[Rfam]
RNA sequence: AAAGAUAGCUAGGGGAGUCCCUGUGGACUGAGAAGACUAUGUCUGACCCUUUGAACCUGAUCUGGAUUAUACCAGCGUAGGGAAGCAAAAAAUAUUUUAA
Numbered sequence: 001a002a003a004g005a006u007a008g009c010u011a012g013g014g015g016a017g018u019c020c021c022u023g024u025g026g027a028c029u030g031a032g033a034a035g036a037c038u039a040u041g042u043c044u045g046a047c048c049c050u051u052u053g054a055a056c057c058u059g060a061u062c063u064g065g066a067u068u069a070u071a072c073c074a075g076c077g078u079a080g081g082g083a084a085g086c087a088a089a090a091a092a093u094a095u096u097u098u099a100a
Stems, first nucleotide, its partner, number of pairs: 006088001008086003011050004016044001017028004035043003056081004062075004
This 100-nucleotide sequence from Propionigenium maris belongs to the Rfam family "TPP riboswitch aptamer (THI element)". Pairs were carried over by alignment from the consensus structure, which is taken from published work.